[Rfam]
Nucleotides: 121
Base pairs, nucleotide, nucleotide: 007026008025009024010023011022012021052075053074055072056071057070058069
Number, partner (000 for none) and nucleotide at each position: 001000u002000u003000c004000a005000g006000u007026a008025g009024c010023u011022g012021u013000a014000a015000a016000u017000a018000u019000g020000c021012g022011c023010g024009g025008u026007u027000a028000c029000u030000g031000a032000u033000a034000a035000a036000u037000u038000a039000a040000a041000u042000u043000c044000a045000u046000g047000c048000a049000u050000a051000u052075u053074u054000a055072g056071g057070a058069g059000a060000c061000u062000a063000a064000c065000a066000u067000g068000g069058c070057u071056u072055u073000a074053a075052g076000u077000g078000c079000c080000g081000a082000a083000g084000a085000a086000a087000a088000a089000u090000c091000a092000a093000a094000a095000g096000u097000u098000g099000u100000a101000a102000g103000u104000g105000a106000g107000u108000a109000c110000c111000a112000g113000c114000g115000u116000g117000u118000u119000g120000a121000a